[Rfam]
The record is a 134-nucleotide RNA from Geosporobacter ferrireducens, which matches "Molybdenum/Tungsten riboswitch aptamer (Moco RNA motif)" in Rfam. A search with the family's covariance model found it, with a score of 83 bits. The base pairs follow the family's consensus structure, which is taken from published work. The source organism's lineage runs through Bacteria, Bacillati, Clostridia, Thermotaleaceae and Geosporobacter.
RNA sequence: AUAGUAAUUAUUUUCCGAGUUAUAUCUUCUAAAGAAUGAUUUCCAUGAAGGUAUCACCGAUGGUUUAUCCAAAAGGGUUUAGUGAGAAAUUGCCAAGCCUCCCGUUUUAGGAAAGGAAAAUACUAUUAGAUACA
Numbered sequence: 001a002u003a004g005u006a007a008u009u010a011u012u013u014u015c016c017g018a019g020u021u022a023u024a025u026c027u028u029c030u031a032a033a034g035a036a037u038g039a040u041u042u043c044c045a046u047g048a049a050g051g052u053a054u055c056a057c058c059g060a061u062g063g064u065u066u067a068u069c070c071a072a073a074a075g076g077g078u079u080u081a082g083u084g085a086g087a088a089a090u091u092g093c094c095a096a097g098c099c100u101c102c103c104g105u106u107u108u109a110g111g112a113a114a115g116g117a118a119a120a121u122a123c124u125a126u127u128a129g130a131u132a133c134a
Base pairs, nucleotide, nucleotide: 004127011120012119013118014117015116016115019057020056022054023053024052025051026050027049028048029047034043035042036041061071062070063069075100076099077098078097079096080095082093083092084091085090101111102110
On this family, see Weinberg et al., Nucleic Acids Res 2007: "Identification of 22 candidate structured RNAs in bacteria using the CMfinder comparative genomics pipeline".